[Rfam]
RNA sequence: CACCACAGAACAAACGCAGAUCUGUGUUCAGCGAUCCCGUUCAUGGAGGGUGCAGUUUCGCAAGAAGUUGUUAUUUCUCUGUGUUUCGGUUGAACGCUGGGCAGUUCGACGAUUUAAGGAGCCAUCCAGCUGGUGGAUGGUUUUUGCGGUUCCUGUCGACAGAUCUCAGAUUAAAGGUUGGCGCUGGGUUGUUCACUCGGGUCUUGAGCUCCCUUGUUUUCGAACUUGGUGAGCUCGGCUGGAGUUCCUGGUUGCUGACGGCGUCAUAUUCCUACUCCCUUUACCGAAUUGACCGUCGGUCACUGAGGUUAGGGAAUAACCAUGACCUGCCAACAUUC
Number, nucleotide and partner (000 for none) at each position: 001c000002a000003c000004c000005a000006c000007a000008g000009a000010a000011c000012a000013a000014a000015c000016g000017c000018a166019g165020a164021u163022c162023u161024g160025u159026g102027u101028u100029c099030a098031g097032c000033g095034a000035u093036c092037c089038c088039g087040u000041u000042c083043a082044u000045g079046g078047a000048g076049g075050g000051u000052g071053c070054a069055g000056u067057u066058u065059c064060g000061c000062a000063a000064g059065a058066a057067g056068u000069u054070g053071u052072u000073a000074u000075u049076u048077c000078u046079c045080u000081g000082u043083g042084u000085u000086u000087c039088g038089g037090u000091u000092g036093a035094a000095c033096g000097c031098u030099g029100g028101g027102c026103a000104g000105u000106u000107c000108g000109a000110c158111g157112a156113u155114u000115u000116a000117a145118g144119g143120a000121g141122c140123c139124a000125u000126c000127c000128a000129g000130c000131u000132g000133g000134u000135g000136g000137a000138u000139g123140g122141u121142u000143u119144u118145u117146g000147c000148g000149g000150u000151u000152c000153c000154u000155g113156u112157c111158g110159a025160c024161a023162g022163a021164u020165c019166u018167c000168a000169g000170a000171u000172u000173a000174a000175a000176g000177g255178u254179u000180g000181g000182c000183g252184c251185u250186g249187g248188g247189u000190u000191g000192u000193u000194c000195a000196c000197u000198c000199g000200g240201g239202u238203c237204u000205u000206g236207a235208g234209c233210u232211c231212c229213c228214u000215u000216g000217u000218u000219u000220u000221c000222g000223a000224a000225c000226u000227u000228g213229g212230u000231g211232a210233g209234c208235u207236c206237g203238g202239c201240u200241g000242g000243a000244g000245u000246u000247c188248c187249u186250g185251g184252u183253u000254g178255c177256u000257g000258a000259c000260g331261g330262c329263g326264u325265c324266a323267u322268a000269u000270u000271c000272c000273u000274a000275c000276u315277c314278c313279c312280u311281u000282u000283a309284c308285c307286g000287a000288a000289u000290u000291g301292a300293c299294c298295g000296u000297c000298g294299g293300u292301c291302a000303c000304u000305g000306a000307g285308g284309u283310u000311a280312g279313g278314g277315a276316a000317u000318a000319a000320c000321c000322a267323u266324g265325a264326c263327c000328u000329g262330c261331c260332a000333a000334c000335a000336u000337u000338c000
The family of this 338-nucleotide sequence from Aspergillus brasiliensis is "A. fumigatus sRNA Afu_309".
By type it is a small RNA.
The literature on the family includes a 2008 paper in Nucleic Acids Res by Jochl et al., "Small ncRNA transcriptome analysis from Aspergillus fumigatus suggests a novel mechanism for regulation of protein synthesis".